[Rfam]
RNA: c-di-AMP riboswitch aptamer (ydaO/yuaA leader)
Organism: Paenibacillus prosopidis
RNA sequence: UUCCAGUUUACGCUUAAUCUCCAUUCGGAGAGCGGGGGAACCAGAUGCGGGUAAUUGUACCGCAUAUUGAAUUCUUCAGGGGUGAAUUUCAAAACCUUUGCCAUGAGCAUUGUGUUAAGAAUAGGGCGACUCUCUUGCCCGAAUCCGUCAGCUAACCUCGUAAGCGUCUAUAGAGAGUGAUC
Numbered sequence: 001u002u003c004c005a006g007u008u009u010a011c012g013c014u015u016a017a018u019c020u021c022c023a024u025u026c027g028g029a030g031a032g033c034g035g036g037g038g039a040a041c042c043a044g045a046u047g048c049g050g051g052u053a054a055u056u057g058u059a060c061c062g063c064a065u066a067u068u069g070a071a072u073u074c075u076u077c078a079g080g081g082g083u084g085a086a087u088u089u090c091a092a093a094a095c096c097u098u099u100g101c102c103a104u105g106a107g108c109a110u111u112g113u114g115u116u117a118a119g120a121a122u123a124g125g126g127c128g129a130c131u132c133u134c135u136u137g138c139c140c141g142a143a144u145c146c147g148u149c150a151g152c153u154a155a156c157c158u159c160g161u162a163a164g165c166g167u168c169u170a171u172a173g174a175g176a177g178u179g180a181u182c
Stems, first nucleotide, its partner, number of pairs: 011166004018031003032161006042079001080146003088121003124140004